[Rfam]
RNA sequence: CCGCGGGGACGACCCCGCGCGCAUCCGGUUUUCCGGCGGGACGACCCGC
Number, nucleotide and partner (000 for none) at each position: 001c000002c019003g018004c017005g016006g015007g014008g013009a000010c000011g000012a000013c008014c007015c006016c005017g004018c003019g002020c000021g000022c000023a000024u000025c000026c000027g000028g000029u000030u000031u000032u000033c000034c000035g000036g049037c048038g047039g046040g045041a000042c000043g000044a000045c040046c039047c038048g037049c036
Notes:
This 49-nucleotide RNA sequence from Plasticicumulans lactativorans belongs to the Rfam family "Guanidine-II riboswitch aptamer (mini-ykkC)". Simpler in structure and has fewer highly conserved nucleotide positions than the ykkC-yxkD leader. Despite this each of its two stem-loop structures directly bind free guanidine. Therefore, mini-ykkC RNA motif represents a distinct class of guanidine-sensing RNAs. Its crystal structure was also determined.